[Rfam]
RNA sequence: CUGAAGAUUUGGCAAAGCAGCCGAAAGACUGUGACGCAAAACUAUAGGGCCUGAACUCUGUGAGAUGGCAGCCAGUUGCAUAU
Numbered sequence: 001c002u003g004a005a006g007a008u009u010u011g012g013c014a015a016a017g018c019a020g021c022c023g024a025a026a027g028a029c030u031g032u033g034a035c036g037c038a039a040a041a042c043u044a045u046a047g048g049g050c051c052u053g054a055a056c057u058c059u060g061u062g063a064g065a066u067g068g069c070a071g072c073c074a075g076u077u078g079c080a081u082a083u
Stems, first nucleotide, its partner, number of pairs: 012037002017032004022027001040077004047073002049069003056064003
Rfam assigns this 83-nucleotide RNA sequence from Aminipila terrae to the family "c-di-GMP-I riboswitch aptamer". From the family's description: GEMM was predicted in a large-scale screen for bacterial structured RNA regulatory elements.